The record is a 379-nucleotide RNA sequence from Antribacter soli, which matches "Bacterial RNase P class A" in Rfam. By type it is a ribozyme. Ribonuclease P (RNase P) is a ubiquitous endoribonuclease, found in archaea, bacteria and eukarya as well as chloroplasts and mitochondria. Its best characterised activity is the generation of mature 5'-ends of tRNAs by cleaving the 5'-leader elements of precursor-tRNAs. It scores 304 bits against the family's covariance model. NCBI's taxonomy places the organism under Bacteria, Bacillati, Actinomycetes, Promicromonosporaceae, Antribacter.
[Rfam]
RNA sequence: CGAGUCGGUCGGACGGUCGCGUCGCUGGUAGCAGCGCCGAGGAACGUCCGGGCUCCUCAGGGCAAGGUGGUGGCCAACAGCCACCCGGGGUGACCCGCGGGACAGUGCCACAGAGAGCAGACCGCCUCUCCCGGGAAACCGGGAGCGGUAAGGGUGAAAGGGUGGUGUAAGAGACCACCAGCGGGCCGGGUGACCGGUCCGGCUAGGUAAACCCCACCUGGAGCAAGGUCAGACAGGGAGCGUUCGAGGGCUGCCCGCCCGAGCUCCCGGGUAGACCGCUCGAGACGUGCGGCAACGCACGUCCUAGAUGGAUGACCGUCACCCGCGCGUGGGCAACCGCGCGCGGGGACAGAACCCGGCGUACAGACCGACUCGUCCG
Numbered sequence: 001c002g003a004g005u006c007g008g009u010c011g012g013a014c015g016g017u018c019g020c021g022u023c024g025c026u027g028g029u030a031g032c033a034g035c036g037c038c039g040a041g042g043a044a045c046g047u048c049c050g051g052g053c054u055c056c057u058c059a060g061g062g063c064a065a066g067g068u069g070g071u072g073g074c075c076a077a078c079a080g081c082c083a084c085c086c087g088g089g090g091u092g093a094c095c096c097g098c099g100g101g102a103c104a105g106u107g108c109c110a111c112a113g114a115g116a117g118c119a120g121a122c123c124g125c126c127u128c129u130c131c132c133g134g135g136a137a138a139c140c141g142g143g144a145g146c147g148g149u150a151a152g153g154g155u156g157a158a159a160g161g162g163u164g165g166u167g168u169a170a171g172a173g174a175c176c177a178c179c180a181g182c183g184g185g186c187c188g189g190g191u192g193a194c195c196g197g198u199c200c201g202g203c204u205a206g207g208u209a210a211a212c213c214c215c216a217c218c219u220g221g222a223g224c225a226a227g228g229u230c231a232g233a234c235a236g237g238g239a240g241c242g243u244u245c246g247a248g249g250g251c252u253g254c255c256c257g258c259c260c261g262a263g264c265u266c267c268c269g270g271g272u273a274g275a276c277c278g279c280u281c282g283a284g285a286c287g288u289g290c291g292g293c294a295a296c297g298c299a300c301g302u303c304c305u306a307g308a309u310g311g312a313u314g315a316c317c318g319u320c321a322c323c324c325g326c327g328c329g330u331g332g333g334c335a336a337c338c339g340c341g342c343g344c345g346g347g348g349a350c351a352g353a354a355c356c357c358g359g360c361g362u363a364c365a366g367a368c369c370g371a372c373u374c375g376u377c378c379g
Base pairs, nucleotide, nucleotide: 001375002374003373004372005371006370007369008368009367010366011364012320013319014318015317016316017315018314020039021038023036024035025034026033027032044362045361046360048359049358050357051356052355053223054222055221056220060256061255062254063253065219066218067217068216069215070084071083072082073081074080085099086097087096088095089094100214101213105212106211107208108207109206122153123152124149125148126147128145129144130143131142132141133140134139161179162178163177164176165175166174181203182201183200184199185198186197187196188195189194227277228276229275230274236268237267238266239265240264241263248260249259250258251257284303285302286301287300288299289298290297291296